Shown here is a 182-nucleotide RNA sequence, a member of the family "malK-I RNA". Rfam's curators put it in the seed alignment.
[Rfam]
RNA sequence: CUGACUGCCUGUACGGCUCUCCAUUUUCAAGUCGUGCGGAGCUUUAAAAAGGAGGAAACAGCACGCCCGGACUCGGGCUGCGGCAGUGUGGAGACCUGCCGUAUCAGCGGCGCGGCCCUCAGCGGCCGGCCGUGAGGGCGUUCCAUGCGAAGGCAGAACGCUCAGAGUCGAGAAACAUGGCA
Numbered sequence: 001c002u003g004a005c006u007g008c009c010u011g012u013a014c015g016g017c018u019c020u021c022c023a024u025u026u027u028c029a030a031g032u033c034g035u036g037c038g039g040a041g042c043u044u045u046a047a048a049a050a051g052g053a054g055g056a057a058a059c060a061g062c063a064c065g066c067c068c069g070g071a072c073u074c075g076g077g078c079u080g081c082g083g084c085a086g087u088g089u090g091g092a093g094a095c096c097u098g099c100c101g102u103a104u105c106a107g108c109g110g111c112g113c114g115g116c117c118c119u120c121a122g123c124g125g126c127c128g129g130c131c132g133u134g135a136g137g138g139c140g141u142u143c144c145a146u147g148c149g150a151a152g153g154c155a156g157a158a159c160g161c162u163c164a165g166a167g168u169c170g171a172g173a174a175a176c177a178u179g180g181c182a
Stems, first nucleotide, its partner, number of pairs: 009039010065078004070169005079103008088095002107133005113128003136163008146155003